Rfam assigns this 84-nucleotide RNA sequence from Chaetops frenatus to the family "Small nucleolar RNA SNORD11". The literature on the family includes a 2001 paper in EMBO J by Huttenhofer et al., "RNomics: an experimental approach that identifies 201 candidates for novel, small, non-messenger RNAs in mouse". The family is grouped with related families in Rfam's "SNORD11 clan". The family's RNA type in Rfam is C/D-box small nucleolar RNA. The source organism's lineage runs through Eukaryota, Craniata, Gnathostomata, Archelosauria and Chaetops. It scores 74 bits against the family's covariance model. Pairs were carried over by alignment from the consensus structure, which was predicted with WAR.
[Rfam]
RNA sequence: GUGUCUGUGAUGACGAUGUUCUUGGUUGGCCUGAAUUCUUCUGGAAUGUGAGGGCAACUUUAGUCACUACCUCUUCUGAGACAC
Dot-bracket structure: ((((............................................................................))))
Numbered sequence: 001g002u003g004u005c006u007g008u009g010a011u012g013a014c015g016a017u018g019u020u021c022u023u024g025g026u027u028g029g030c031c032u033g034a035a036u037u038c039u040u041c042u043g044g045a046a047u048g049u050g051a052g053g054g055c056a057a058c059u060u061u062a063g064u065c066a067c068u069a070c071c072u073c074u075u076c077u078g079a080g081a082c083a084c
Stems, first nucleotide, its partner, number of pairs: 001084004